The record is an 87-nucleotide sequence from Triticum aestivum, which matches "MIR1120/MIR1122 microRNA precursor family" in Rfam. Gene Ontology terms of the family: miRNA-mediated post-transcriptional gene silencing and RISC complex. Taxonomically the source falls in Triticum (Eukaryota, Petrosaviidae, Pooideae, Triticeae).
[Rfam]
RNA sequence: CUACUCCCUCCGUCCCAUAAUAUAAGAUGUUUUUGCAAGUUGUUUUAGCUUGCAAAAGCGUCUUAUAUUAUAGGACGGAGGGAGUAC
Numbered sequence: 001c002u003a004c005u006c007c008c009u010c011c012g013u014c015c016c017a018u019a020a021u022a023u024a025a026g027a028u029g030u031u032u033u034u035g036c037a038a039g040u041u042g043u044u045u046u047a048g049c050u051u052g053c054a055a056a057a058g059c060g061u062c063u064u065a066u067a068u069u070a071u072a073g074g075a076c077g078g079a080g081g082g083a084g085u086a087c
Stems, first nucleotide, its partner, number of pairs: 003085003007081005013075003017071001019069023